RNA sequence: GAAACGUCACACGGGAGUCCCGAGGUCCGCGGGGCUGAGAGGGGGCGCGCCGCCCCGACCGUCAGACCUGAUCCGGAUCAUGCCGGCGCAGGAAGGCGAGGUUAUGCGAGUG
Number, nucleotide and partner (000 for none) at each position: 001g000002a000003a000004a000005c000006g000007u099008c098009a000010c096011a062012c061013g060014g059015g000016a000017g035018u034019c033020c032021c031022g000023a000024g000025g000026u000027c000028c000029g000030c000031g021032g020033g019034g018035c017036u000037g000038a000039g000040a000041g000042g056043g055044g054045g053046c052047g000048c000049g000050c000051c000052g046053c045054c044055c043056c042057g000058a000059c014060c013061g012062u011063c000064a000065g000066a000067c092068c091069u090070g089071a000072u000073c086074c085075g084076g083077a000078u000079c000080a000081u000082g000083c076084c075085g074086g073087c000088g000089c070090a069091g068092g067093a000094a000095g000096g010097c000098g008099a007100g000101g000102u000103u000104a000105u000106g000107c000108g000109a000110g000111u000112g000
A member of the RNA family "TPP riboswitch aptamer (THI element)" from Speluncibacter jeojiensis, 112 nucleotides long. The family's consensus secondary structure is taken from published work. Lineage of the source: Bacteria > Bacillati > Actinomycetes > Mycobacteriales > Speluncibacter. Rfam links the family to the GO term thiamine pyrophosphate binding. Vitamin B(1) in its active form thiamin pyrophosphate (TPP) is an essential coenzyme that is synthesised by coupling of pyrimidine and thiazole moieties in bacteria.